skipping-rope RNA: a 127-nucleotide RNA sequence from Methylorubrum populi. Lineage of the source: Bacteria > Pseudomonadota > Alphaproteobacteria > Methylobacteriaceae > Methylorubrum populi.
Nucleotides: 127
Stems, first nucleotide, its partner, number of pairs: 002127004006122003011029005020112004031096001032052004101119004
Number, partner (000 for none) and nucleotide at each position: 001000g002127a003126g004125a005124u006122u007121u008120g009000a010000g011029g012028u013027g014026a015025g016000a017000a018000c019000g020112g021111c022110c023109u024000c025015c026014u027013c028012a029011c030000g031096c032052g033051c034050c035049c036000a037000c038000g039000c040000u041000c042000a043000a044000u045000g046000c047000g048000g049035g050034g051033g052032c053000a054000a055000a056000g057000u058000a059000g060000c061000a062000c063000c064000g065000g066000c067000u068000g069000c070000a071000c072000g073000g074000c075000a076000u077000g078000c079000c080000a081000u082000g083000c084000g085000g086000u087000c088000g089000g090000u091000g092000u093000g094000a095000a096031g097000a098000g099000a100000u101119c102118c103117g104116g105000a106000u107000u108000u109023g110022g111021g112020c113000a114000u115000c116104c117103c118102g119101g120008c121007a122006a123000c124005g125004u126003u127002u